Rfam assigns this 275-nucleotide RNA sequence from Nannospalax galili to the family "Mason-Pfizer monkey virus packaging signal". The source organism's lineage runs through Eukaryota, Teleostomi, Dipnotetrapodomorpha, Euarchontoglires and Nannospalax. It scores 167 bits against the family's covariance model. The literature on the family includes a 2004 paper in Virus Res by Mustafa et al., "Mutational analysis of the predicted secondary RNA structure of the Mason-Pfizer monkey virus packaging signal". About the family: This family represents a group of sequences that are related to the Mason-Pfizer monkey virus (MPMV) packaging signal.
RNA sequence: UGGCACCCAAUGUGGGGCUUGGAUACUGGGGGACAACAUGAGGGUCCAACGACGGAAGAAAAAGGGGUGCGCACCCGCUCAAAUAAUUUGGAGACGCCGUGGGAGCCUGUCGCGACCAAGCCAAAGGUAAGUUGGUUGUUCAAAUAUGGGGCAAGAACUAAGUCAGCAUCAGAUUUAUGUAAUACAGUUAAGAGAAUCUUUAUAGGCAAGAGGAGUAAAGGUUAAAACUGAGGAUUUAUUUCAUUUCUUUGAUUUUGUAAAGGACAUUUGUCCCU
Numbered sequence: 001u002g003g004c005a006c007c008c009a010a011u012g013u014g015g016g017g018c019u020u021g022g023a024u025a026c027u028g029g030g031g032g033a034c035a036a037c038a039u040g041a042g043g044g045u046c047c048a049a050c051g052a053c054g055g056a057a058g059a060a061a062a063a064g065g066g067g068u069g070c071g072c073a074c075c076c077g078c079u080c081a082a083a084u085a086a087u088u089u090g091g092a093g094a095c096g097c098c099g100u101g102g103g104a105g106c107c108u109g110u111c112g113c114g115a116c117c118a119a120g121c122c123a124a125a126g127g128u129a130a131g132u133u134g135g136u137u138g139u140u141c142a143a144a145u146a147u148g149g150g151g152c153a154a155g156a157a158c159u160a161a162g163u164c165a166g167c168a169u170c171a172g173a174u175u176u177a178u179g180u181a182a183u184a185c186a187g188u189u190a191a192g193a194g195a196a197u198c199u200u201u202a203u204a205g206g207c208a209a210g211a212g213g214a215g216u217a218a219a220g221g222u223u224a225a226a227a228c229u230g231a232g233g234a235u236u237u238a239u240u241u242c243a244u245u246u247c248u249u250u251g252a253u254u255u256u257g258u259a260a261a262g263g264a265c266a267u268u269u270g271u272c273c274c275u
Stems, first nucleotide, its partner, number of pairs: 006031003012026003037051001039049001087126003090122002096117001098114005132154003139150004159202003162198001210250006219237005260275001262273004